[Rfam]
RNA sequence: ACCGCUUCUCGGUCUUUUCGGUAAGAUCAGAAUGUAGUAUCUGUUCUCGUCGGUUUGAAAGUCGGAGCUGGUCCCACUGGGGCCAGACUCUUUCAAGCGGAUUUUUGGACAUCGGCCAGGAUCAUUCGAGUUCACUGGGGCCUGUGUCGUCGAGUUCGGUCCACUUCCGUCUCCUUCGACUGUCUAAC
Numbered sequence: 001a002c003c004g005c006u007u008c009u010c011g012g013u014c015u016u017u018u019c020g021g022u023a024a025g026a027u028c029a030g031a032a033u034g035u036a037g038u039a040u041c042u043g044u045u046c047u048c049g050u051c052g053g054u055u056u057g058a059a060a061g062u063c064g065g066a067g068c069u070g071g072u073c074c075c076a077c078u079g080g081g082g083c084c085a086g087a088c089u090c091u092u093u094c095a096a097g098c099g100g101a102u103u104u105u106u107g108g109a110c111a112u113c114g115g116c117c118a119g120g121a122u123c124a125u126u127c128g129a130g131u132u133c134a135c136u137g138g139g140g141c142c143u144g145u146g147u148c149g150u151c152g153a154g155u156u157c158g159g160u161c162c163a164c165u166u167c168c169g170u171c172u173c174c175u176u177c178g179a180c181u182g183u184c185u186a187a188c
Base pairs, nucleotide, nucleotide: 007026008025009024011022013020048067050065051064052063053062069085070084071083072082073081074080075079114142115141116140117139127138129136130135146180147179148178149177152173153172154171156169

The record is a 188-nucleotide sequence from Rotaria magnacalcarata, which matches "U2 spliceosomal RNA" in Rfam. Its family is annotated with U2 snRNP, pre-mRNA branch point binding and mRNA branch site recognition in the Gene Ontology. Rfam describes the family as follows. U2 is a small nuclear RNA (snRNA) component of the spliceosome (involved in pre-mRNA splicing). For this family Rfam cites "The uRNA database" (Zwieb, Nucleic Acids Res, 1997).